RNase MRP: a 255-nucleotide RNA sequence from Medicago truncatula. The family's RNA type in Rfam is ribozyme. The family's consensus secondary structure is taken from published work. Rfam 15.1 lists 3,510 matches to the family in 2,315 species. A reference for the family is Schmitt et al. (1993), "Secondary structure of RNase MRP RNA as predicted by phylogenetic comparison", FASEB J. Rfam's curators write: RNase MRP is an enzymatically active ribonucleoprotein with two distinct roles in eukaryotes. NCBI's taxonomy places the organism under Eukaryota, Gunneridae, fabids, Papilionoideae, Medicago.
RNA sequence: CAUGGAUUGAGACGAUGUGGAUGGGCCCAUGCUAAGUGCUGGGCUCAGGAAAGUCCCCGGGCCCAAUCUGCAGAAAUGCAGGCCUGGAAACAGGUAAAUCUUUGAGCUGGGGCUGGUUUCACACUUUCGGGUGUGAGGGCUGAGACAAGUGUGGAGCCUUUGCCAGUGCCGCCAAAGAAAAUUGGCCGAUUCAUACAGUCAUUCACAUGGAUGGUCCUUGCGACUAACAGAACGGGGCUUAUGUCUCCAAUCCAA
Numbered sequence: 001c002a003u004g005g006a007u008u009g010a011g012a013c014g015a016u017g018u019g020g021a022u023g024g025g026c027c028c029a030u031g032c033u034a035a036g037u038g039c040u041g042g043g044c045u046c047a048g049g050a051a052a053g054u055c056c057c058c059g060g061g062c063c064c065a066a067u068c069u070g071c072a073g074a075a076a077u078g079c080a081g082g083c084c085u086g087g088a089a090a091c092a093g094g095u096a097a098a099u100c101u102u103u104g105a106g107c108u109g110g111g112g113c114u115g116g117u118u119u120c121a122c123a124c125u126u127u128c129g130g131g132u133g134u135g136a137g138g139g140c141u142g143a144g145a146c147a148a149g150u151g152u153g154g155a156g157c158c159u160u161u162g163c164c165a166g167u168g169c170c171g172c173c174a175a176a177g178a179a180a181a182u183u184g185g186c187c188g189a190u191u192c193a194u195a196c197a198g199u200c201a202u203u204c205a206c207a208u209g210g211a212u213g214g215u216c217c218u219u220g221c222g223a224c225u226a227a228c229a230g231a232a233c234g235g236g237g238c239u240u241a242u243g244u245c246u247c248c249a250a251u252c253c254a255a
Stems, first nucleotide, its partner, number of pairs: 003254007011247002015208006022047007051240003055237004069080004082095005117171001122168004128162001137159004147152001210224001212222001214221002